[Rfam]
Rfam assigns this 98-nucleotide RNA sequence from Rodentibacter trehalosifermentans to the family "Aggregatibacter sRNA 22".
A search with the family's covariance model found it, with a score of 59 bits.
On this family, see Oogai et al., DNA Res 2017: "Small RNA repertoires and their intraspecies variation in Aggregatibacter actinomycetemcomitans".
The family's RNA type in Rfam is small RNA.
RNA sequence: GCGCGUGCACAAAAACGCUGUUUUUGAACGUUGGCUUUGCCAACGGCCUCGUGAGAGGUGAACAAACGAAUGAACGAGUUUGUGAAUAAAUUUAUGCG
Numbered sequence: 001g002c003g004c005g006u007g008c009a010c011a012a013a014a015a016c017g018c019u020g021u022u023u024u025u026g027a028a029c030g031u032u033g034g035c036u037u038u039g040c041c042a043a044c045g046g047c048c049u050c051g052u053g054a055g056a057g058g059u060g061a062a063c064a065a066a067c068g069a070a071u072g073a074a075c076g077a078g079u080u081u082g083u084g085a086a087u088a089a090a091u092u093u094a095u096g097c098g
Stems, first nucleotide, its partner, number of pairs: 010026007029045007046059005062083006086095003